[Rfam]
RNA sequence: CCACACAGCCGGGGAAGUAGCGGCGCCCUGAACCUGCAAUCCGCUAUAGCAGGGGUGAUAUUGAACAGAGGCUUGGUUUUGUGAAGCAGCCUGAAAUCAAUGGUGUUGAGAGUUUGGUCCUACGCAAUGGAAACCUGUGAAUCGUGUCAGAUCUUGACGGAAGCAGCACUAAGCAGAUAUUUUCAUGUGCCGUGGGAGUGCCGGAUUUGAGCCAGGGGUUUGAGAAGCGUUCGGAAGAUCAUUGUCGACGGGAUAUGUGUGG
Numbered sequence: 001c002c003a004c005a006c007a008g009c010c011g012g013g014g015a016a017g018u019a020g021c022g023g024c025g026c027c028c029u030g031a032a033c034c035u036g037c038a039a040u041c042c043g044c045u046a047u048a049g050c051a052g053g054g055g056u057g058a059u060a061u062u063g064a065a066c067a068g069a070g071g072c073u074u075g076g077u078u079u080u081g082u083g084a085a086g087c088a089g090c091c092u093g094a095a096a097u098c099a100a101u102g103g104u105g106u107u108g109a110g111a112g113u114u115u116g117g118u119c120c121u122a123c124g125c126a127a128u129g130g131a132a133a134c135c136u137g138u139g140a141a142u143c144g145u146g147u148c149a150g151a152u153c154u155u156g157a158c159g160g161a162a163g164c165a166g167c168a169c170u171a172a173g174c175a176g177a178u179a180u181u182u183u184c185a186u187g188u189g190c191c192g193u194g195g196g197a198g199u200g201c202c203g204g205a206u207u208u209g210a211g212c213c214a215g216g217g218g219u220u221u222g223a224g225a226a227g228c229g230u231u232c233g234g235a236a237g238a239u240c241a242u243u244g245u246c247g248a249c250g251g252g253a254u255a256u257g258u259g260u261g262g
Stems, first nucleotide, its partner, number of pairs: 001262007008056003011029004018022001033053005061255001066250001070246003076239005082233004089228002092223001094221004101215001102213003110208009119196006125187002128185005133178001135176004144169004152161003

A member of the RNA family "Bacterial large signal recognition particle RNA" from Clostridiales bacterium COT073_COT-073, 262 nucleotides long.
Its Rfam clan is "SRP clan".
By type it is a non-coding RNA gene.
The family's consensus secondary structure is taken from published work.
Rfam's curators write: The signal recognition particle (SRP) is a universally conserved ribonucleoprotein involved in the co-translational targeting of proteins to membranes.